[Rfam]
Nucleotides: 108
Stems, first nucleotide, its partner, number of pairs: 001108004014098005025044001027042003047085007064078001067075001
Number, partner (000 for none) and nucleotide at each position: 001108g002107g003106g004105a005000a006000g007000u008000g009000a010000u011000g012000a013000u014098u015097g016096g017095g018094u019000u020000u021000a022000u023000c024000u025044c026000u027042c028041g029040c030000a031000u032000a033000u034000u035000u036000u037000a038000a039000u040029g041028c042027g043000u044025g045000a046000a047085g048084a049083g050082c051081g052080u053079u054000c055000c056000g057000c058000u059000c060000a061000a062000a063000c064078c065000u066000c067075u068000u069000a070000c071000g072000a073000c074000a075067a076000u077000u078064g079053g080052g081051c082050g083049c084048u085047c086000c087000a088000a089000u090000u091000u092000u093000c094018a095017u096016u097015u098014a099000a100000u101000c102000u103000g104000a105004u106003c107002c108001c